[Rfam]
RNA sequence: GGGUUAAUGCUAAUCGUGAUAGGGGUGGUUCUGUGAAGGACUCCUGCCCGUUAGCAUUAGCCC
Number, nucleotide and partner (000 for none) at each position: 001g000002g000003g000004u060005u059006a058007a057008u056009g055010c054011u053012a052013a051014u050015c000016g000017u000018g000019a000020u046021a045022g044023g043024g000025g041026u040027g000028g000029u000030u000031c000032u000033g000034u000035g000036a000037a000038g000039g000040a026041c025042u000043c023044c022045u021046g020047c000048c000049c000050g014051u013052u012053a011054g010055c009056a008057u007058u006059a005060g004061c000062c000063c000

Shown here is a 63-nucleotide RNA sequence from Conger conger, a member of the family "mir-155 microRNA precursor family". The family has 25 seed sequences and 647 matches in Rfam 15.1. The organism belongs to Conger, within Eukaryota. The base pairs follow the family's consensus structure, which was predicted with RNAalifold.